Shown here is a 131-nucleotide sequence from Sus scrofa, a member of the family "Small nucleolar RNA SNORA33".
RNA sequence: UAGCCAGCCAAUGAAUCUGCUUACCAGGACAUGUUUCUGCUGGAAUUUAGAAAAAGCUGCCAAUAGGAAAGCCAUGUUAUGAGCCUUAAAAGACAUUGAAGUCAUUAAGGUCUCUGAAAAUUGCUGCAAGA
Numbered sequence: 001u002a003g004c005c006a007g008c009c010a011a012u013g014a015a016u017c018u019g020c021u022u023a024c025c026a027g028g029a030c031a032u033g034u035u036u037c038u039g040c041u042g043g044a045a046u047u048u049a050g051a052a053a054a055a056g057c058u059g060c061c062a063a064u065a066g067g068a069a070a071g072c073c074a075u076g077u078u079a080u081g082a083g084c085c086u087u088a089a090a091a092g093a094c095a096u097u098g099a100a101g102u103c104a105u106u107a108a109g110g111u112c113u114c115u116g117a118a119a120a121u122u123g124c125u126g127c128a129a130g131a
Base pairs, nucleotide, nucleotide: 003061005059006058007057016043017042019040020039071124072123074121083111084110085109086108087107088106089105092103093102094101
The family's consensus secondary structure was predicted with PFOLD.
ACA33 is a member of the H/ACA class of snoRNA that guide the sites of modification of uridines to pseudouridines.